[Rfam]
RNA: Y RNA
RNA sequence: GGCUGGUCCAAAGAUAGUGAGUUAUCUCAAUGGAUUGUGCACCAUCAGUUACAGGUAGAACUCCUUGUUCCACUUUUUCCCCCUUCUCACUACUGCAUUUGACUAGUUUUUU
Numbered sequence: 001g002g003c004u005g006g007u008c009c010a011a012a013g014a015u016a017g018u019g020a021g022u023u024a025u026c027u028c029a030a031u032g033g034a035u036u037g038u039g040c041a042c043c044a045u046c047a048g049u050u051a052c053a054g055g056u057a058g059a060a061c062u063c064c065u066u067g068u069u070c071c072a073c074u075u076u077u078u079c080c081c082c083c084u085u086c087u088c089a090c091u092a093c094u095g096c097a098u099u100u101g102a103c104u105a106g107u108u109u110u111u112u
Stems, first nucleotide, its partner, number of pairs: 001108008010100002015095001016091006044074001048070001